[Rfam]
RNA sequence: UAUUAGGUUGGUGCAAAAGUAAUUGAGGUCUUUGUCAUUACUUUCAGUGACAAAGACCUCAAUUACUUUUGCACCAACCUAAUA
Numbered sequence: 001u002a003u004u005a006g007g008u009u010g011g012u013g014c015a016a017a018a019g020u021a022a023u024u025g026a027g028g029u030c031u032u033u034g035u036c037a038u039u040a041c042u043u044u045c046a047g048u049g050a051c052a053a054a055g056a057c058c059u060c061a062a063u064u065a066c067u068u069u070u071g072c073a074c075c076a077a078c079c080u081a082a083u084a
Base pairs, nucleotide, nucleotide: 001084002083003082004081005080006079007078008077009076010075011074012073013072014071015070016069017068018067019066020065021064022063023062024061025060026059027058028057029056030055031054032053033052034051035050036049037048038047039046
Dot-bracket structure: (((((((((((((((((((((((((((((((((((((((......)))))))))))))))))))))))))))))))))))))))

Rfam assigns this 84-nucleotide sequence from Piliocolobus tephrosceles to the family "mir-548 microRNA precursor family". Rfam 15.1 lists 3,009 matches to the family in 27 species. The family's consensus secondary structure was predicted with WAR. A reference for the family is Witten et al. (2010), "Ultra-high throughput sequencing-based small RNA discovery and discrete statistical biomarker analysis in a collection of cervical tumours and matched controls", BMC Biol. It scores 96 bits against the family's covariance model. Taxonomically the source falls in Piliocolobus (Eukaryota, Metazoa, Vertebrata, Teleostomi).